[Rfam]
RNA sequence: AUGCACUAGAUGGGGAAUUAGCGAUGCCCUGUUACCUGCAAUCGCUACAGCAGGAUCGAAUUCCCGAGCGAGGGAUUAAAAGUGUUGGUAUGAACUUAAAAAGUGGUGUUGAGAAGUGGGUCUCACGCAACAGGAACCUGUGAACCUGGUCAGGAUCGGAAGGUAGCAGCCAUAAGCAGUCAUUCCUGUGUGAUGUGAGGGUGCCUAUUUUGAGCUAACUAGUAGGGAUCGCCUCCGCUUUUUCUAACAGACUCGGGUGUGCUU
Numbered sequence: 001a002u003g004c005a006c007u008a009g010a011u012g013g014g015g016a017a018u019u020a021g022c023g024a025u026g027c028c029c030u031g032u033u034a035c036c037u038g039c040a041a042u043c044g045c046u047a048c049a050g051c052a053g054g055a056u057c058g059a060a061u062u063c064c065c066g067a068g069c070g071a072g073g074g075a076u077u078a079a080a081a082g083u084g085u086u087g088g089u090a091u092g093a094a095c096u097u098a099a100a101a102a103g104u105g106g107u108g109u110u111g112a113g114a115a116g117u118g119g120g121u122c123u124c125a126c127g128c129a130a131c132a133g134g135a136a137c138c139u140g141u142g143a144a145c146c147u148g149g150u151c152a153g154g155a156u157c158g159g160a161a162g163g164u165a166g167c168a169g170c171c172a173u174a175a176g177c178a179g180u181c182a183u184u185c186c187u188g189u190g191u192g193a194u195g196u197g198a199g200g201g202u203g204c205c206u207a208u209u210u211u212g213a214g215c216u217a218a219c220u221a222g223u224a225g226g227g228a229u230c231g232c233c234u235c236c237g238c239u240u241u242u243u244c245u246a247a248c249a250g251a252c253u254c255g256g257g258u259g260u261g262c263u264u
Base pairs, nucleotide, nucleotide: 001264003262004261005260006259009057010056011055012030013029014028015027017025018024019023035054036053037052038051039050063257064256065255066254067253068252073245074244075243079241080240081239082238083237084236087233088232092230093229095226096225097224098223103219104218105216106215107214113211114210115209116208117207118206119205120204121203122199123198124197125196126195127194128190129189131188132187133186134185135184138179139178140177141176147172148171149170150169155164156163157162
Shown here is a 264-nucleotide sequence from Finegoldia magna, a member of the family "Bacterial large signal recognition particle RNA". The literature on the family includes a 2003 paper in Nucleic Acids Res by Rosenblad et al., "SRPDB: Signal Recognition Particle Database". From the family's description: The signal recognition particle (SRP) is a universally conserved ribonucleoprotein involved in the co-translational targeting of proteins to membranes. By type it is a non-coding RNA gene. NCBI's taxonomy places the organism under Bacteria, Tissierellia, Tissierellales, Peptoniphilaceae, Finegoldia magna. Its family is annotated with signal recognition particle, plasma membrane targeting and SRP-dependent cotranslational protein targeting to membrane, signal sequence recognition in the Gene Ontology. The match comes from Rfam's covariance-model search (168 bits).